[Rfam]
RNA sequence: CGGGGAAGUGCAGACUCCCCCUUAAACGGCCCGCCCGUUCAAGCUCUGC
Numbered sequence: 001c002g003g004g005g006a007a008g009u010g011c012a013g014a015c016u017c018c019c020c021c022u023u024a025a026a027c028g029g030c031c032c033g034c035c036c037g038u039u040c041a042a043g044c045u046c047u048g049c
Base pairs, nucleotide, nucleotide: 002020003019004018005017006016010049011048012047013046014045025039026038027037028036029035

chrB-b RNA: a 49-nucleotide RNA sequence. It is annotated as a cis-regulatory element.